[Rfam]
RNA sequence: AGAGGUGGCAAGGCGAUUGCGAGCAACUCUUUAUAUUGAGGAAAUGCUUGAGGAAAGUCCGGGCUUCCGAAAGACCAAACUUGCUGGAUAACGUCCAGUGCGAGCGAUCGUGAGGAGAGUGCCACAGAAACAUACCGCCUUUAGAAGCCAGAAGAAUAAAUAAUGAAGAGGAAGUUAAAUUCCACCUUCAGCGUUUAUUUGCGCUUAGAGGUAAGGGUGCAAAGGUGCGGUAAGAGCGCACCAGCAGCAUCGAGAGGUGCUGGCUCGGUAAACCCCGGUUGGAUGCAAGGCAGAUGGGGCAACGGUUGGUCUUUUUCCCGUCCCGUGUUGCUGGUGAAAUACCCAGCAAAGAGCCGCUUGAGGCAUUUGGUAACAGGUGUCCCAGAUAGAUAAUCGCCCUCUUAGAGCGUUGCUCGUAAGAGAACAGAACCCGGCUUACGUCCACCUCUUCUU
Numbered sequence: 001a002g003a004g005g006u007g008g009c010a011a012g013g014c015g016a017u018u019g020c021g022a023g024c025a026a027c028u029c030u031u032u033a034u035a036u037u038g039a040g041g042a043a044a045u046g047c048u049u050g051a052g053g054a055a056a057g058u059c060c061g062g063g064c065u066u067c068c069g070a071a072a073g074a075c076c077a078a079a080c081u082u083g084c085u086g087g088a089u090a091a092c093g094u095c096c097a098g099u100g101c102g103a104g105c106g107a108u109c110g111u112g113a114g115g116a117g118a119g120u121g122c123c124a125c126a127g128a129a130a131c132a133u134a135c136c137g138c139c140u141u142u143a144g145a146a147g148c149c150a151g152a153a154g155a156a157u158a159a160a161u162a163a164u165g166a167a168g169a170g171g172a173a174g175u176u177a178a179a180u181u182c183c184a185c186c187u188u189c190a191g192c193g194u195u196u197a198u199u200u201g202c203g204c205u206u207a208g209a210g211g212u213a214a215g216g217g218u219g220c221a222a223a224g225g226u227g228c229g230g231u232a233a234g235a236g237c238g239c240a241c242c243a244g245c246a247g248c249a250u251c252g253a254g255a256g257g258u259g260c261u262g263g264c265u266c267g268g269u270a271a272a273c274c275c276c277g278g279u280u281g282g283a284u285g286c287a288a289g290g291c292a293g294a295u296g297g298g299g300c301a302a303c304g305g306u307u308g309g310u311c312u313u314u315u316u317c318c319c320g321u322c323c324c325g326u327g328u329u330g331c332u333g334g335u336g337a338a339a340u341a342c343c344c345a346g347c348a349a350a351g352a353g354c355c356g357c358u359u360g361a362g363g364c365a366u367u368u369g370g371u372a373a374c375a376g377g378u379g380u381c382c383c384a385g386a387u388a389g390a391u392a393a394u395c396g397c398c399c400u401c402u403u404a405g406a407g408c409g410u411u412g413c414u415c416g417u418a419a420g421a422g423a424a425c426a427g428a429a430c431c432c433g434g435c436u437u438a439c440g441u442c443c444a445c446c447u448c449u450u451c452u453u
Stems, first nucleotide, its partner, number of pairs: 001449008012398007020050006028042004055437003059434005064285001066283002078280003082277002084098005099113001100111004114275002119273002121269003135216002137212008224242006244264001245262007289355003362381008
The record is a 453-nucleotide RNA from Myxacorys almedinensis, which matches "Bacterial RNase P class A" in Rfam. The family's RNA type in Rfam is ribozyme. Lineage of the source: Bacteria > Bacillati > Leptolyngbyaceae > Myxacorys > Myxacorys almedinensis.